[Rfam]
This 79-nucleotide RNA sequence from Sodalis-like symbiont of Bactericera trigonica belongs to the Rfam family "RybB RNA".
The base pairs follow the family's consensus structure, which was predicted with PFOLD.
On this family, see Wassarman et al., Genes Dev 2001: "Identification of novel small RNAs using comparative genomics and microarrays".
By type it is a small RNA.
About the family: This ncRNA was identified in a large scale screen of E. coli. The function of this short RNA is unknown. The exact 5' and 3' ends of this RNA are uncertain.
RNA sequence: ACUGCUUUUCUUUGAUUUACCCAUUUUGAGGAGCGCAAGCGUACCGCCUCUUAGGUUCAAGACGCCUGAGUUUUUUUAU
Numbered sequence: 001a002c003u004g005c006u007u008u009u010c011u012u013u014g015a016u017u018u019a020c021c022c023a024u025u026u027u028g029a030g031g032a033g034c035g036c037a038a039g040c041g042u043a044c045c046g047c048c049u050c051u052u053a054g055g056u057u058c059a060a061g062a063c064g065c066c067u068g069a070g071u072u073u074u075u076u077u078a079u
Base pairs, nucleotide, nucleotide: 032072033071034070036068037067039065040064041063042062